FMN riboswitch aptamer (RFN element): a 120-nucleotide sequence from Caloramator sp. E03. Pairs were carried over by alignment from the consensus structure, which is taken from published work. The RFN element is a highly conserved domain that is found frequently in the 5'-untranslated regions of prokaryotic mRNAs that encode for flavin mononucleotide (FMN) biosynthesis and transport proteins. Taxonomically the source falls in Caloramator (Bacteria, Bacillati, Clostridia, Clostridiaceae).
RNA sequence: UUUAUCCUUCAGGGCAGGGUGCAAUUCCCGACCGGCGGUACAGCCCGCGAGCAGCAUUAUGCUGCAGAUUCUGGUGAAAUUCCAGAGCCGACAGUAAAGUCUGGAUGGAAGAAGGAGGUG
Numbered sequence: 001u002u003u004a005u006c007c008u009u010c011a012g013g014g015c016a017g018g019g020u021g022c023a024a025u026u027c028c029c030g031a032c033c034g035g036c037g038g039u040a041c042a043g044c045c046c047g048c049g050a051g052c053a054g055c056a057u058u059a060u061g062c063u064g065c066a067g068a069u070u071c072u073g074g075u076g077a078a079a080u081u082c083c084a085g086a087g088c089c090g091a092c093a094g095u096a097a098a099g100u101c102u103g104g105a106u107g108g109a110a111g112a113a114g115g116a117g118g119u120g
Stems, first nucleotide, its partner, number of pairs: 003118001005116006017029003031100002033090002035048004043088002051065003070086005092103003